[Rfam]
RNA: Lysine riboswitch aptamer
Organism: Lactonifactor longoviformis
RNA sequence: AAGAAUGAUAGAGGUUGCGCUUUUUAUGAGUAUUUUAUCAGAUGUGGCAGGCACAGAUGACGAUAGAAAAAAGGAAACGGCGCCGAAAGGGUGGGAACCCUGCAGUCCUAUACCUUGGGCAUGAAGUGAAUAAUUUCAUGACUGUCAUCGUAAGAUGGUGCGCUAUCCAAAGA
Number, nucleotide and partner (000 for none) at each position: 001a000002a000003g000004a000005a000006u000007g167008a166009u165010a164011g163012a000013g000014g000015u000016u000017g083018c082019g081020c080021u079022u000023u077024u076025u075026a000027u000028g000029a000030g000031u000032a000033u068034u067035u066036u065037a064038u063039c062040a000041g000042a000043u000044g000045u000046g000047g000048c000049a000050g000051g000052c000053a000054c000055a000056g000057a000058u000059g000060a000061c000062g039063a038064u037065a036066g035067a034068a033069a000070a000071a000072a000073g000074g000075a025076a024077a023078c000079g021080g020081c019082g018083c017084c000085g000086a000087a116088a115089g114090g113091g000092u000093g000094g109095g108096a000097a106098c105099c000100c000101u000102g000103c000104a000105g098106u097107c000108c095109u094110a000111u000112a000113c090114c089115u088116u087117g143118g142119g000120c140121a139122u138123g137124a136125a135126g134127u133128g000129a000130a000131u000132a000133a127134u126135u125136u124137c123138a122139u121140g120141a000142c118143u117144g000145u158146c157147a156148u155149c154150g000151u000152a000153a000154g149155a148156u147157g146158g145159u000160g000161c000162g000163c011164u010165a009166u008167c007168c000169a000170a000171a000172g000173a000